The family of this 96-nucleotide RNA from Consotaella salsifontis is "Repression of heat shock gene expression (ROSE) element".
[Rfam]
RNA sequence: CCGAUCGCCCGUAAGGGGACCGGAUGUCGAAGGGCGCCAGCUCUUUGGCGCCCUCGUAAGAUCCAUGUUGCUCAAUGGAGGAUAUGGUUAUGAGGA
Numbered sequence: 001c002c003g004a005u006c007g008c009c010c011g012u013a014a015g016g017g018g019a020c021c022g023g024a025u026g027u028c029g030a031a032g033g034g035c036g037c038c039a040g041c042u043c044u045u046u047g048g049c050g051c052c053c054u055c056g057u058a059a060g061a062u063c064c065a066u067g068u069u070g071c072u073c074a075a076u077g078g079a080g081g082a083u084a085u086g087g088u089u090a091u092g093a094g095g096a
Stems, first nucleotide, its partner, number of pairs: 001023003005019002008017002033052007053094006063087007071080003

It scores 63 bits against the family's covariance model. The base pairs follow the family's consensus structure, which is taken from published work. This family represents a 5' UTR cis-regulatory element found in heat shock mRNAs and is known as the ROSE (repression of heat shock gene expression) element. The ROSE element is a negative regulator of heat shock gene expression. Lineage of the source: Bacteria > Pseudomonadati > Pseudomonadota > Hyphomicrobiales > Consotaella. Rfam classes the family as an RNA thermoregulator.